Rfam assigns this 75-nucleotide sequence from Streptomyces sp. GS7 to the family "ASpks TB sRNA". For this family Rfam cites "Identification of small RNAs in Mycobacterium tuberculosis" (Arnvig and Young, Mol Microbiol, 2009). NCBI's taxonomy places the organism under Bacteria, Bacillati, Actinomycetes, Kitasatosporales, Streptomyces. A search with the family's covariance model found it, with a score of 82 bits. It is annotated as an antisense RNA.

[Rfam]
RNA sequence: CUUCACCGCGCCCAGCAGCAACGGCCGCUCCACCGGACGCUCCUGACCAUAGGUGGCCAGCAGCGCCUGGGCCUC
Numbered sequence: 001c002u003u004c005a006c007c008g009c010g011c012c013c014a015g016c017a018g019c020a021a022c023g024g025c026c027g028c029u030c031c032a033c034c035g036g037a038c039g040c041u042c043c044u045g046a047c048c049a050u051a052g053g054u055g056g057c058c059a060g061c062a063g064c065g066c067c068u069g070g071g072c073c074u075c
Base pairs, nucleotide, nucleotide: 015025016024031071033069038065039064043060044059045058047056048055049054